A member of the RNA family "FMN riboswitch aptamer (RFN element)" from Pikeienuella piscinae, 178 nucleotides long. Taxonomically the source falls in Pikeienuella (Bacteria, Alphaproteobacteria, Rhodobacterales, Paracoccaceae). Its family is annotated with FMN binding in the Gene Ontology. The family's consensus secondary structure is taken from published work.
RNA sequence: GCGCGUUCUCGGGGCGGGGCGAAAUUCCCCACCGGCGGUGUUGGCCAGGGGUUUCGCGAUGCGGAGCCUUCGGCCUCAGCCCGCGAGCGCCCUUGCGUUUCAGGCGAAACGCCGGGGGUCAGCAGAUCCGGUGCGAUCCCGGAGCCGACGGUCAUAGUCCGGAUGAGAGAGAACGAGC
Numbered sequence: 001g002c003g004c005g006u007u008c009u010c011g012g013g014g015c016g017g018g019g020c021g022a023a024a025u026u027c028c029c030c031a032c033c034g035g036c037g038g039u040g041u042u043g044g045c046c047a048g049g050g051g052u053u054u055c056g057c058g059a060u061g062c063g064g065a066g067c068c069u070u071c072g073g074c075c076u077c078a079g080c081c082c083g084c085g086a087g088c089g090c091c092c093u094u095g096c097g098u099u100u101c102a103g104g105c106g107a108a109a110c111g112c113c114g115g116g117g118g119u120c121a122g123c124a125g126a127u128c129c130g131g132u133g134c135g136a137u138c139c140c141g142g143a144g145c146c147g148a149c150g151g152u153c154a155u156a157g158u159c160c161g162g163a164u165g166a167g168a169g170a171g172a173a174c175g176a177g178c
Stems, first nucleotide, its partner, number of pairs: 004175007017029003031158002033147002035084004087123002127143005149161003